[Rfam]
RNA: mir-221 microRNA precursor family
Organism: Anguilla anguilla
Nucleotides: 085
Base pairs, nucleotide, nucleotide: 013069014068015067016066017065018064020062021061022060023058025056026055027054028053032052033051034050035049
Number, partner (000 for none) and nucleotide at each position: 001000u002000u003000c004000a005000c006000u007000g008000c009000a010000u011000a012000c013069u014068c015067a016066g017065u018064a019000u020062u021061c022060a023058g024000g025056g026055u027054a028053g029000g030000a031000u032052c033051u034050g035049u036000g037000u038000g039000a040000a041000a042000a043000u044000c045000a046000a047000a048000u049035a050034c051033a052032g053028c054027u055026a056025c057000a058023u059000c060022u061021g062020a063000u064018u065017a066016c067015u068014g069013g070000g071000u072000c073000u074000g075000u076000a077000a078000g079000a080000a081000c082000a083000u084000u085000a